[Rfam]
RNA sequence: GAAGUUCCGGUUCACGCCCGUCACCUCCGACGCGGAGGGGCGACCCGGGGCC
Numbered sequence: 001g002a003a004g005u006u007c008c009g010g011u012u013c014a015c016g017c018c019c020g021u022c023a024c025c026u027c028c029g030a031c032g033c034g035g036a037g038g039g040g041c042g043a044c045c046c047g048g049g050g051c052c
Base pairs, nucleotide, nucleotide: 004051005050007048008047009046010045015042016041017040018039019038021036022035
Dot-bracket structure: ...((.((((....(((((.((............)).)))))..)))).)).
A member of the RNA family "L31-Actinobacteria ribosomal protein leader" from Mycobacterium sp. E740, 52 nucleotides long.
The family is grouped with related families in Rfam's "Ribosomal Protein L31 Leader clan".
The organism belongs to Mycobacterium, within Bacteria.
A reference for the family is Eckert and Weinberg (2020), "Discovery of 20 novel ribosomal leader candidates in bacteria and archaea", BMC Microbiol.